Notes
The record is a 52-nucleotide sequence from Phocoena sinus, which matches "mir-1302 microRNA precursor family" in Rfam.

RNA sequence: CUUUUAGUAUAAGUAUGUCCCAGGCAACAUUCGGGACAUACUUAUAUUUAAA
Numbered sequence: 001c002u003u004u005u006a007g008u009a010u011a012a013g014u015a016u017g018u019c020c021c022a023g024g025c026a027a028c029a030u031u032c033g034g035g036a037c038a039u040a041c042u043u044a045u046a047u048u049u050a051a052a
Stems, first nucleotide, its partner, number of pairs: 006048007014040003018036004022031001
Notes:
On this family, see Morin et al., Genome Res 2008: "Application of massively parallel sequencing to microRNA profiling and discovery in human embryonic stem cells". Rfam links the family to the GO terms RISC complex and miRNA-mediated post-transcriptional gene silencing. The match comes from Rfam's covariance-model search (63 bits). Taxonomically the source falls in Phocoena (Eukaryota, Eumetazoa, Vertebrata, Laurasiatheria).